Overview: The family of this 213-nucleotide RNA sequence from Coregonus sp. 'balchen' is "Small nucleolar RNA SNORD17". The snoRNA HBI-43 belongs to the C/D family of snoRNAs, guiding 2'O-ribose methylation at position U3797 of the 28S rRNA. Pseudouridylation in position U3797 is predicted to be guided by the H/ACA snoRNA ACA48. The literature on the family includes a 2001 paper in EMBO J by Huttenhofer et al., "RNomics: an experimental approach that identifies 201 candidates for novel, small, non-messenger RNAs in mouse". The family's consensus secondary structure was predicted with RNAalifold.
[Rfam]
RNA sequence: CUGAAAUGAUGAACUUGUUUAUCCAUUCGCUGAGUGCUGCUGGGCCCUGGCCCUGCAGCCCCCUGUGUCUGUUCUUGACUCAGGGGGAUCAGCGGCUUGACUCUAUGCUUUUGCCCCAGUGUUCUACUGGGGUAAACUGUGUUGGGGGCAGGUGUGCUGGUGCUAUGGUUAAGGGCCCGGCUACAACUAAGACGAGCGUAAACUCCUGAUCAC
Numbered sequence: 001c002u003g004a005a006a007u008g009a010u011g012a013a014c015u016u017g018u019u020u021a022u023c024c025a026u027u028c029g030c031u032g033a034g035u036g037c038u039g040c041u042g043g044g045c046c047c048u049g050g051c052c053c054u055g056c057a058g059c060c061c062c063c064u065g066u067g068u069c070u071g072u073u074c075u076u077g078a079c080u081c082a083g084g085g086g087g088a089u090c091a092g093c094g095g096c097u098u099g100a101c102u103c104u105a106u107g108c109u110u111u112u113g114c115c116c117c118a119g120u121g122u123u124c125u126a127c128u129g130g131g132g133u134a135a136a137c138u139g140u141g142u143u144g145g146g147g148g149c150a151g152g153u154g155u156g157c158u159g160g161u162g163c164u165a166u167g168g169u170u171a172a173g174g175g176c177c178c179g180g181c182u183a184c185a186a187c188u189a190a191g192a193c194g195a196g197c198g199u200a201a202a203c204u205c206c207u208g209a210u211c212a213c
Stems, first nucleotide, its partner, number of pairs: 010212003014208001017205001020202001024198001026196004030191002034187002039181010050169003054165001055163002058089001060087005065081001067079003090159005102147002104144001107137001111135011
Dot-bracket structure: .........(((.(..(..(...(.((((((..((...((((((((((.(((.(((.(.((((((.(((.......))).).))))).)(((((.......(((..(...(((((((((((...))))))))))).)......).)).......)))))..)).).)))..))))))))))....))..)).)))).)...)..)..).))).

A search with the family's covariance model found it, with a score of 78 bits. Its family is annotated with nucleolus and RNA processing in the Gene Ontology.